The record is a 106-nucleotide RNA sequence from Hyunsoonleella pacifica, which matches "TPP riboswitch aptamer (THI element)" in Rfam. The match comes from Rfam's covariance-model search (70 bits).

[Rfam]
RNA sequence: AUACAACUUUAGGGGUGUUAAUUUGUUGAGUAACAAUGUUAACUGAGAGUUACCCUUUGAACCUGAUUAAGUUAGAGCUUACGUAGGGAAAAGUAGUUAUUAUUAG
Dot-bracket structure: .....(((((((((..(((((.................))))).........)))).....((((..((((......))))..))))..)))))............
Pairs were carried over by alignment from the consensus structure, which is taken from published work.